[Rfam]
RNA sequence: AAUGGACUGGCCUGCCUGGCAGGCCCUGGCUGACUGUUGCCUGAAGAAGGGUAA
Numbered sequence: 001a002a003u004g005g006a007c008u009g010g011c012c013u014g015c016c017u018g019g020c021a022g023g024c025c026c027u028g029g030c031u032g033a034c035u036g037u038u039g040c041c042u043g044a045a046g047a048a049g050g051g052u053a054a
Stems, first nucleotide, its partner, number of pairs: 009025005
RNA: algC RNA